RNA sequence: GGGGAUGAUCGGUUUCGACAGCGGAUGUCGAAGCAGGGGAAGCGAGCCGAGGAACGCGGCAAUGAUCUCGUUAACCAUCUGCCGCAAAAAAAUAAUCGCCAACACCAAGCGCGAUUCCUUCGCCCUCGCUGCCUAAGCAGCGACUUGCGAAGUGUCAGCCCGGGUGCGUUCCCGACCCGGUUCCUGGCAUCAGCUAGGGAACUCACCGCGUAAGUCCGGUCACGGGGCUUGCCGGGACAUCUCACAGUGACUGGGCCCGUCGGCAGCUUGUCUGCGUGACUGCCGGGGCCGAGAAAAGCACAGCAGACUGCGCUCGGAGAAGCCCUCCUCCUGCACCGCUGGACGCGGGUUCGAUUCCCGCCAUCUCCACCU
Number, nucleotide and partner (000 for none) at each position: 001g368002g367003g366004g365005a364006u363007g362008a000009u000010c000011g000012g000013u000014u000015u000016c000017g000018a000019c341020a340021g339022c338023g337024g336025a000026u000027g000028u000029c000030g331031a000032a329033g328034c000035a326036g325037g324038g323039g000040a000041a000042g000043c316044g315045a314046g313047c312048c070049g069050a068051g067052g066053a000054a000055c000056g085057c084058g083059g082060c081061a080062a000063u000064g000065a000066u052067c051068u050069c049070g048071u000072u000073a000074a000075c000076c000077a000078u000079c000080u061081g060082c059083c058084g057085c056086a000087a000088a000089a000090a000091a000092a000093u000094a000095a000096u000097c000098g000099c000100c000101a000102a000103c000104a000105c000106c000107a000108a000109g000110c000111g000112c000113g000114a000115u000116u000117c000118c000119u000120u000121c000122g000123c000124c000125c000126u143127c142128g141129c140130u139131g138132c137133c000134u000135a000136a000137g132138c131139a130140g129141c128142g127143a126144c000145u000146u000147g000148c000149g000150a000151a000152g000153u189154g188155u187156c186157a185158g184159c000160c180161c179162g178163g177164g176165u175166g000167c000168g202169u201170u200171c199172c198173c197174g000175a165176c164177c163178c162179g161180g160181u000182u000183c000184c158185u157186g156187g155188c154189a153190u000191c000192a000193g000194c000195u000196a000197g173198g172199g171200a170201a169202c168203u000204c000205a000206c235207c234208g233209c000210g232211u231212a230213a229214g228215u000216c000217c000218g252219g251220u250221c249222a248223c247224g000225g000226g000227g000228c214229u213230u212231g211232c210233c208234g207235g206236g000237a000238c000239a000240u000241c000242u000243c000244a000245c000246a000247g223248u222249g221250a220251c219252u218253g000254g290255g289256c288257c287258c286259g000260u000261c285262g284263g283264c000265a000266g281267c000268u279269u000270g308271u307272c306273u305274g000275c000276g000277u000278g000279a268280c000281u266282g000283c263284c262285g261286g258287g257288g256289c255290c254291g000292a000293g000294a000295a000296a000297a000298g000299c000300a000301c000302a000303g000304c000305a273306g272307a271308c270309u000310g000311c000312g047313c046314u045315c044316g043317g000318a000319g000320a000321a000322g000323c038324c037325c036326u035327c000328c033329u032330c000331c030332u000333g000334c000335a000336c024337c023338g022339c021340u020341g019342g000343a000344c000345g361346c360347g359348g358349g357350u000351u000352c000353g000354a000355u000356u000357c349358c348359c347360g346361c345362c007363a006364u005365c004366u003367c002368c001369a000370c000371c000372u000
Rfam assigns this 372-nucleotide sequence from Streptomyces tardus to the family "transfer-messenger RNA".
NCBI's taxonomy places the organism under Bacteria, Actinomycetota, Kitasatosporales, Streptomycetaceae, Streptomyces.
The base pairs follow the family's consensus structure, which is taken from published work.
Gene Ontology term of the family: RNA catabolic process.
For this family Rfam cites "Probing the structure of the Escherichia coli 10Sa RNA (tmRNA)" (Felden et al., RNA, 1997).